The record is a 368-nucleotide RNA from Lancefieldella parvula, which matches "Bacterial RNase P class A" in Rfam. It is annotated as a ribozyme. The source organism's lineage runs through Bacteria, Actinomycetota, Coriobacteriales, Atopobiaceae and Lancefieldella parvula. Its Rfam clan is "RNaseP clan".

RNA sequence: AAAGUGGACCAGACAACCGCGGAGUGCCCGUCCAGCUAAUUGGAAGGGUGCUAUGAGGAAAGUCCGGGCUCCACAGGGCAGGAUGCUGGCUAACGGCCAGGCGGGGUGACCCGACGGAAAGUGCCGCAGAAAAGAAGACUCUCACCUGCGCAUUCGCGUAAAGAGAAAAGCUGAAACGGUAGUGUAAGAGACUACCAGCAUGCUGGCAACAGCAUGGCUUGGUAAACCCCAUCCGGAGCAAACGCAAAUAGAAGCGCUAUGGUGUGGCCCGCACUGCGCUCGGGUUGCGCGCUAGAGACCAGCAGCAAUGCUGGUAGUAGAUAAAUGGUUGUCCGCGACAGAACCCGGCUUAUACGUCCACUUUGCCU
Number, nucleotide and partner (000 for none) at each position: 001a364002a363003a362004g361005u360006g359007g358008a357009c356010c000011a353012g333013a332014c331015a330016a329017c328018c327019g000020c055021g054022g000023a052024g051025u050026g049027c048028c047029c000030g000031u000032c000033c000034a000035g000036c000037u000038a000039a000040u000041u000042g000043g000044a000045a000046g000047g028048g027049u026050g025051c024052u023053a000054u021055g020056a000057g000058g000059a000060a351061a350062g349063u000064c348065c347066g346067g345068g344069c238070u237071c236072c235073a000074c000075a000076g270077g269078g268079c267080a000081g234082g233083a232084u231085g230086c100087u099088g098089g097090c096091u000092a000093a000094c000095g000096g090097c089098c088099a087100g086101g115102c113103g112104g111105g110106g000107u000108g000109a000110c105111c104112c103113g102114a000115c101116g229117g228118a000119a000120a000121g227122u226123g223124c222125c221126g000127c000128a000129g000130a000131a000132a000133a000134g000135a000136a000137g000138a000139c170140u169141c165142u164143c163144a000145c000146c000147u160148g159149c158150g157151c156152a000153u000154u000155c000156g151157c150158g149159u148160a147161a000162a000163g143164a142165g141166a000167a000168a000169a140170g139171c000172u000173g000174a000175a000176a000177c000178g196179g195180u194181a193182g192183u191184g000185u000186a000187a000188g000189a000190g000191a183192c182193u181194a180195c179196c178197a000198g218199c216200a215201u214202g213203c212204u211205g210206g000207c000208a000209a000210c205211a204212g203213c202214a201215u200216g199217g000218c198219u000220u000221g125222g124223u123224a000225a000226a122227c121228c117229c116230c085231a084232u083233c082234c081235g072236g071237a070238g069239c000240a000241a000242a000243c289244g288245c287246a000247a000248a000249u000250a000251g000252a000253a280254g279255c278256g277257c276258u000259a000260u000261g275262g274263u273264g272265u271266g000267g079268c078269c077270c076271g265272c264273a263274c262275u261276g257277c256278g255279c254280u253281c000282g000283g000284g000285u000286u000287g245288c244289g243290c000291g000292c000293u000294a000295g000296a000297g000298a315299c314300c313301a312302g311303c310304a309305g000306c000307a000308a000309u304310g303311c302312u301313g300314g299315u298316a000317g000318u000319a000320g000321a000322u000323a000324a000325a000326u000327g018328g017329u016330u015331g014332u013333c012334c000335g000336c000337g000338a000339c000340a000341g000342a000343a000344c068345c067346c066347g065348g064349c062350u061351u060352a000353u011354a000355c000356g009357u008358c007359c006360a005361c004362u003363u002364u001365g000366c000367c000368u000